Rfam assigns this 76-nucleotide RNA sequence from Chlorobium ferrooxidans to the family "Chlorobi-RRM RNA".
The sequence is in the family's curated seed alignment.
Taxonomically the source falls in Chlorobium ferrooxidans (Bacteria, Chlorobiota, Chlorobiales, Chlorobiaceae).
The family's RNA type in Rfam is cis-regulatory element.
RNA sequence: AAGCAAGACCAACGGUUGGUCUGAAAACUUUCAAGUGAUUUGUGCUUUUGGUUAUUUGACAGUGUCUCUUUUUGAU
Numbered sequence: 001a002a003g004c005a006a007g008a009c010c011a012a013c014g015g016u017u018g019g020u021c022u023g024a025a026a027a028c029u030u031u032c033a034a035g036u037g038a039u040u041u042g043u044g045c046u047u048u049u050g051g052u053u054a055u056u057u058g059a060c061a062g063u064g065u066c067u068c069u070u071u072u073u074g075a076u
Stems, first nucleotide, its partner, number of pairs: 006022002009019004027063003031059010